[Rfam]
RNA sequence: AUGACAUGUAGCAUGCCCUUUGUGGAAUUACUCUUAUGUAUAUUGCUAUUUAAUUGCUUUUGGGUAACGGGGUGUUACAGUAGA
Numbered sequence: 001a002u003g004a005c006a007u008g009u010a011g012c013a014u015g016c017c018c019u020u021u022g023u024g025g026a027a028u029u030a031c032u033c034u035u036a037u038g039u040a041u042a043u044u045g046c047u048a049u050u051u052a053a054u055u056g057c058u059u060u061u062g063g064g065u066a067a068c069g070g071g072g073u074g075u076u077a078c079a080g081u082a083g084a
Base pairs, nucleotide, nucleotide: 002084007079008078009077010076011075012074013073014072016071017070018069019067020066
Shown here is an 84-nucleotide RNA from Medicago truncatula, a member of the family "MIR2617 microRNA precursor family". The family's consensus secondary structure was predicted with RNAalifold. Lineage of the source: Eukaryota > Tracheophyta > Papilionoideae > Trifolieae > Medicago.